[Rfam]
RNA sequence: AUGAAGAUUCCGGGAGAGACCGUCUGUCACAGACGGCGCCGAAGGGGAACGCAAAAACUCUCAGGCAAAAAAACCGGGAUCCGACG
Numbered sequence: 001a002u003g004a005a006g007a008u009u010c011c012g013g014g015a016g017a018g019a020c021c022g023u024c025u026g027u028c029a030c031a032g033a034c035g036g037c038g039c040c041g042a043a044g045g046g047g048a049a050c051g052c053a054a055a056a057a058c059u060c061u062c063a064g065g066c067a068a069a070a071a072a073a074c075c076g077g078g079a080u081c082c083g084a085c086g
Stems, first nucleotide, its partner, number of pairs: 006081008020036004038066003041062002045060003
RNA: Glycine riboswitch aptamer